Source information: Rfam assigns this 136-nucleotide sequence from Actinidia chinensis to the family "small nucleolar RNA snoR137". NCBI's taxonomy places the organism under Eukaryota, Streptophytina, Embryophyta, Ericales, Actinidia chinensis. Rfam links the family to the GO terms RNA processing and nucleolus. It scores 58 bits against the family's covariance model.
[Rfam]
RNA sequence: GUUACCUCUUGAAAGGUGUAUGGCCAUUUUACCAGAUGGCCCGUCAUGCCUUUGAAGCAUAUAUCAAAGAAAUUGCCAGUAUUAAACAGCAUAAUGUUUUACUGUUGCAUUGUGUUACCUGUCUCUCGGUAAAUGU
Dot-bracket structure: ..(.(.((........((.((((((((........))))).))))).......)).).)...............(((.(.(......(((.(((((...........))))).))).......).).)))......